[Rfam]
RNA: Mesorhizobail RNA 7
Organism: Mesorhizobium sanjuanii
RNA sequence: GAUUCCGCAAUGCCGCCAUGAUCUUCGCCAGCUCCCGCCUAGGUUUCGGACUGCUUCAUUCACAUACCAGUUUCGAUAUAUCAACCAUCAGAGAUCGCAUUUGACAGUUAUGUCAAAGGGACACACCCUCCGCGCGUCCCGAGACGUGUCUGUCGAUGACGAGGAAAAUCGUAUCGAUUGAAACAAGCGUACCGGGGCCGAUUGGGAGGAUACCGGAGAUCGAUAGACGACAGCGGCGCUCGCGCUUCUGCUCGACUGCGCGGCCCGCGAAGCCCCGAGGUAUCGCGUCCAUCAACCAGGGAGAGUUAC
Dot-bracket structure: .......................(........................)......................(((........(((..(((((.......)))))..))).........)))...........((((((....)))))).(.((((....(((......)))...)))).).......(((......)).....(((.....................((...(.......)..((....)).....)).....))).....)(((.(.(((.........)))...).)))........